[Rfam]
RNA: U12 minor spliceosomal RNA
Organism: Carlito syrichta
RNA sequence: AUGCCUUAAACUUAUGAGUAAGGAAAAUAAUGAUUCUGGGUGACGCCCGAAUCCUCACUGCUAAUGGGAAACGGAUUUUUGAAUGGGUAAAGGCUGCUCCUAAGGUUGACCCGCCUACUUUGUGGGAUGCGUGGGAGUCGAUAUUUGCCUG
Numbered sequence: 001a002u003g004c005c006u007u008a009a010a011c012u013u014a015u016g017a018g019u020a021a022g023g024a025a026a027a028u029a030a031u032g033a034u035u036c037u038g039g040g041u042g043a044c045g046c047c048c049g050a051a052u053c054c055u056c057a058c059u060g061c062u063a064a065u066g067g068g069a070a071a072c073g074g075a076u077u078u079u080u081g082a083a084u085g086g087g088u089a090a091a092g093g094c095u096g097c098u099c100c101u102a103a104g105g106u107u108g109a110c111c112c113g114c115c116u117a118c119u120u121u122g123u124g125g126g127a128u129g130c131g132u133g134g135g136a137g138u139c140g141a142u143a144u145u146u147g148c149c150u151g
Stems, first nucleotide, its partner, number of pairs: 004023005032053005038047002055069002058066001084151005091146003097140001100135002103132001105130002110126005